[Rfam]
Rfam assigns this 86-nucleotide RNA sequence from Hondaea fermentalgiana to the family "Selenocysteine transfer RNA".
RNA sequence: GGGAGCGUGACCUUCCUCGGUAGGGAGGCCAGGCUUCAAACCUGGUGGACGUUCGCGCGUCAGAGGUUCGACUCCUCCUCGGUCCC
Numbered sequence: 001g002g003g004a005g006c007g008u009g010a011c012c013u014u015c016c017u018c019g020g021u022a023g024g025g026a027g028g029c030c031a032g033g034c035u036u037c038a039a040a041c042c043u044g045g046u047g048g049a050c051g052u053u054c055g056c057g058c059g060u061c062a063g064a065g066g067u068u069c070g071a072c073u074c075c076u077c078c079u080c081g082g083u084c085c086c
Stems, first nucleotide, its partner, number of pairs: 001086004006081002009078001012027006028046006048061005063077004